Background:
The record is an 81-nucleotide RNA from Rhodoplanes serenus, which matches "Bradyrhizobiaceae sRNA BjrC68" in Rfam. The family's RNA type in Rfam is small RNA. The literature on the family includes a 2012 paper in RNA Biol by Madhugiri et al., "Small RNAs of the Bradyrhizobium/Rhodopseudomonas lineage and their analysis".
[Rfam]
RNA sequence: ACGAGCUCACGGACGGAGCGGAGACCCGGCACCGCUCCGGCCGGUGGGAGGCCCCGACCUCGUGUCGGGGCCUCUUUUUUG
Numbered sequence: 001a002c003g004a005g006c007u008c009a010c011g012g013a014c015g016g017a018g019c020g021g022a023g024a025c026c027c028g029g030c031a032c033c034g035c036u037c038c039g040g041c042c043g044g045u046g047g048g049a050g051g052c053c054c055c056g057a058c059c060u061c062g063u064g065u066c067g068g069g070g071c072c073u074c075u076u077u078u079u080u081g
Stems, first nucleotide, its partner, number of pairs: 010043003014039005048074008057065002
Dot-bracket structure: .........(((.(((((................))))).)))....((((((((.((.....)).)))))))).......